[Rfam]
Annotation: A member of the RNA family "Plastid-ycf2 5UTR RNA" from Capsicum baccatum, 75 nucleotides long. Plastid ycf2 is a non-coding RNA (ncRNA) recognised in plastids. It was found in the prime untranslated region (5UTR) of ycf2 genes, it presents a tRNA-like motif which suggests it can be involved in mRNA maturation, particularly involved in defining the precise 5' end of the transcript. For this family Rfam cites "Retrograde signaling in plants: A critical review focusing on the GUN pathway and beyond" (Richter et al., Plant Commun, 2023). A search with the family's covariance model found it, with a score of 89 bits.

RNA sequence: GUGCAUCCAGUAGGAAUUAAACCUACGAAUUCGUCAAUGUUGAGUUGGGCGCUUUAACCAUUCAACCAUGGAUGC
Numbered sequence: 001g002u003g004c005a006u007c008c009a010g011u012a013g014g015a016a017u018u019a020a021a022c023c024u025a026c027g028a029a030u031u032c033g034u035c036a037a038u039g040u041u042g043a044g045u046u047g048g049g050c051g052c053u054u055u056a057a058c059c060a061u062u063c064a065a066c067c068a069u070g071g072a073u074g075c
Stems, first nucleotide, its partner, number of pairs: 003075006010026005041068002044066006051059001